[Rfam]
RNA sequence: GUUGCUUCAUAAUGGUGAAAUCUCUCAAAUUGAGUGAGGGAAUUUCAAGUUUCCGGAGCAUAGAUUAAAUAUUUUAUAUAUCGCCAGUAUUAAACAGCUCGAUGUGUAUACAAUCGCAUCGAUGUUACCUGUCUCCUGGCACAUUU
Numbered sequence: 001g002u003u004g005c006u007u008c009a010u011a012a013u014g015g016u017g018a019a020a021u022c023u024c025u026c027a028a029a030u031u032g033a034g035u036g037a038g039g040g041a042a043u044u045u046c047a048a049g050u051u052u053c054c055g056g057a058g059c060a061u062a063g064a065u066u067a068a069a070u071a072u073u074u075u076a077u078a079u080a081u082c083g084c085c086a087g088u089a090u091u092a093a094a095c096a097g098c099u100c101g102a103u104g105u106g107u108a109u110a111c112a113a114u115c116g117c118a119u120c121g122a123u124g125u126u127a128c129c130u131g132u133c134u135c136c137u138g139g140c141a142c143a144u145u146u
Stems, first nucleotide, its partner, number of pairs: 003060006016047005021041005083140005089134001096126003100121005
This 146-nucleotide RNA from Helianthus annuus belongs to the Rfam family "small nucleolar RNA snoR137".
The family's RNA type in Rfam is H/ACA-box small nucleolar RNA.
The family's consensus secondary structure was predicted with RNAalifold.
Gene Ontology terms of the family: RNA processing and nucleolus.
Taxonomically the source falls in Helianthus (Eukaryota, Euphyllophyta, Spermatophyta, Gunneridae).
A search with the family's covariance model found it, with a score of 113 bits.